Source information:
The family of this 113-nucleotide RNA from Paenibacillus roseus is "epsC RNA". The organism belongs to Paenibacillus, within Bacteria. By type it is a cis-regulatory element.
RNA sequence: AGGUAAUGCCUACUAAACCUUUAUCAUUGUAGGCACUCGGUCACGCUGUGGGCCCGACUGGGCCUUAGACAUGAAUUGUCGAGGGUGUGAUGUGAGGUUGGGUUAAAUGCCCU
Numbered sequence: 001a002g003g004u005a006a007u008g009c010c011u012a013c014u015a016a017a018c019c020u021u022u023a024u025c026a027u028u029g030u031a032g033g034c035a036c037u038c039g040g041u042c043a044c045g046c047u048g049u050g051g052g053c054c055c056g057a058c059u060g061g062g063c064c065u066u067a068g069a070c071a072u073g074a075a076u077u078g079u080c081g082a083g084g085g086u087g088u089g090a091u092g093u094g095a096g097g098u099u100g101g102g103u104u105a106a107a108u109g110c111c112c113u
Stems, first nucleotide, its partner, number of pairs: 001020004007035007036096004040091008050065006068080004100112004